The family of this 66-nucleotide RNA sequence from Pueribacillus theae is "Bacillaceae-1 RNA". Pairs were carried over by alignment from the consensus structure, which is taken from published work. Lineage of the source: Bacteria > Bacillota > Bacilli > Caryophanales > Pueribacillus.

RNA sequence: CUUAAUUGAAGUUCGACUAAUAAACCACGUCUUGUGAUAACGUCGAACCGACUUAUCUCCUGUAAG
Numbered sequence: 001c002u003u004a005a006u007u008g009a010a011g012u013u014c015g016a017c018u019a020a021u022a023a024a025c026c027a028c029g030u031c032u033u034g035u036g037a038u039a040a041c042g043u044c045g046a047a048c049c050g051a052c053u054u055a056u057c058u059c060c061u062g063u064a065a066g
Stems, first nucleotide, its partner, number of pairs: 011048007024038001026036003052066005